Small nucleolar RNA U3: a 214-nucleotide RNA from Anabarilius grahami. Pairs were carried over by alignment from the consensus structure, which is taken from published work. A search with the family's covariance model found it, with a score of 148 bits. Rfam's curators write: Small nucleolar RNAs (snoRNAs) are involved in the processing and modification of rRNA in the nucleolus. There are two main classes of snoRNAs: the box C/D class, and the box H/ACA class. U3 snoRNA is a member of the box C/D class.
RNA sequence: AAGACUAUACUUUCAGGGAUCAUUUCUAUAGUUCUUUACUAGGAAGUGUACUAGAAAGUGAUGAGUCUGCCAAACCACGAUGAUGAGUUUUGAUACUAUUUCCUGAGCGUGAAUCGGGUGUAGAGUAAUGAUUCAGUUCAUAUGCUUUACAUCAUUGAUGAACGUUCCUCUCUGUUUAAUACAGAUUGGAUGGAAGGAGUAUGAUCAGAGUGGU
Numbered sequence: 001a002a003g004a005c006u007a008u009a010c011u012u013u014c015a016g017g018g019a020u021c022a023u024u025u026c027u028a029u030a031g032u033u034c035u036u037u038a039c040u041a042g043g044a045a046g047u048g049u050a051c052u053a054g055a056a057a058g059u060g061a062u063g064a065g066u067c068u069g070c071c072a073a074a075c076c077a078c079g080a081u082g083a084u085g086a087g088u089u090u091u092g093a094u095a096c097u098a099u100u101u102c103c104u105g106a107g108c109g110u111g112a113a114u115c116g117g118g119u120g121u122a123g124a125g126u127a128a129u130g131a132u133u134c135a136g137u138u139c140a141u142a143u144g145c146u147u148u149a150c151a152u153c154a155u156u157g158a159u160g161a162a163c164g165u166u167c168c169u170c171u172c173u174g175u176u177u178a179a180u181a182c183a184g185a186u187u188g189g190a191u192g193g194a195a196g197g198a199g200u201a202u203g204a205u206c207a208g209a210g211u212g213g214u
Stems, first nucleotide, its partner, number of pairs: 002040002009032003015027004049063002052061001074214005093202005099196005107165003117153004123147004128141004168188001171185005

Record summary
Its Rfam clan is "U3 clan".